The family of this 46-nucleotide RNA from Streptomyces sp. TAA486 is "L31-Actinobacteria ribosomal protein leader".
The source organism's lineage runs through Bacteria, Actinomycetota, Kitasatosporales, Streptomycetaceae and Streptomyces.
The sequence is in the family's curated seed alignment.

RNA sequence: UCGGCCCCGGUUCACGGCGGACAAGCCCGUCCUCCGACCCGGUGCC
Number, nucleotide and partner (000 for none) at each position: 001u000002c000003g046004g045005c044006c000007c042008c041009g040010g039011u000012u000013c000014a000015c036016g035017g034018c000019g032020g031021a030022c029023a000024a000025g000026c000027c000028c000029g022030u021031c020032c019033u000034c017035c016036g015037a000038c000039c010040c009041g008042g007043u000044g005045c004046c003